Record summary: This 74-nucleotide RNA from Sutterella megalosphaeroides belongs to the Rfam family "tRNA". A search with the family's covariance model found it, with a score of 62 bits. Transfer RNA (tRNA) molecules are approximately 80 nucleotides in length. Taxonomically the source falls in Sutterella (Bacteria, Pseudomonadati, Pseudomonadota, Sutterellaceae). Rfam classes the family as a transfer RNA. The base pairs follow the family's consensus structure, which is taken from published work.
[Rfam]
RNA sequence: AGGGGUAUCGCCAAGCGGCCUAAGGCACCGGAUUUUGAUUCCGGCAUUCGAAGGUUCGAAUCCUUCUACCCCUG
Numbered sequence: 001a002g003g004g005g006u007a008u009c010g011c012c013a014a015g016c017g018g019c020c021u022a023a024g025g026c027a028c029c030g031g032a033u034u035u036u037g038a039u040u041c042c043g044g045c046a047u048u049c050g051a052a053g054g055u056u057c058g059a060a061u062c063c064u065u066c067u068a069c070c071c072c073u074g
Stems, first nucleotide, its partner, number of pairs: 001073007010026003028044005050066005